[Rfam]
RNA sequence: UGGGCUCUCGUAGCAGCAUGGAGGAGAAUGGGCGUUGGUAAAUUUACCUGAGAACACCCUUUCUAUCUAUGCUGCUAGAGAGCCCA
Dot-bracket structure: (((.(((...(((((((((.(...((((.(((........................))).)))).)..))))))))..)))).)))
Numbered sequence: 001u002g003g004g005c006u007c008u009c010g011u012a013g014c015a016g017c018a019u020g021g022a023g024g025a026g027a028a029u030g031g032g033c034g035u036u037g038g039u040a041a042a043u044u045u046a047c048c049u050g051a052g053a054a055c056a057c058c059c060u061u062u063c064u065a066u067c068u069a070u071g072c073u074g075c076u077a078g079a080g081a082g083c084c085c086a
Stems, first nucleotide, its partner, number of pairs: 001086003005082003011079001012076008021066001025064004030059003